[Rfam]
RNA: Small nucleolar RNA snoR138
Organism: Trifolium medium
RNA sequence: UUUGCCUCCGAAUAACUAAAUGGUGAUUCAUUACGUUUUAGUUCAGACAGAGGCAUAUAUAUAACACUCGAAUUGGUCUGAGGGUACUGAAAGCUUCAUUUUCAGUACCAUUUCCAUACCUGUAGUUUGUUCCAAUUCGGACAUUC
Dot-bracket structure: ..((((((.....(((((((..(((......)))..)))))))......)))))).............((((((.(...(.(.(..((((((.......))))))..)).)...)......(.((....)).))))))).......
Numbered sequence: 001u002u003u004g005c006c007u008c009c010g011a012a013u014a015a016c017u018a019a020a021u022g023g024u025g026a027u028u029c030a031u032u033a034c035g036u037u038u039u040a041g042u043u044c045a046g047a048c049a050g051a052g053g054c055a056u057a058u059a060u061a062u063a064a065c066a067c068u069c070g071a072a073u074u075g076g077u078c079u080g081a082g083g084g085u086a087c088u089g090a091a092a093g094c095u096u097c098a099u100u101u102u103c104a105g106u107a108c109c110a111u112u113u114c115c116a117u118a119c120c121u122g123u124a125g126u127u128u129g130u131u132c133c134a135a136u137u138c139g140g141a142c143a144u145u146c
Stems, first nucleotide, its partner, number of pairs: 003055006014043007023034003069139006076115001080111001082109001084108001087105006122133001124131002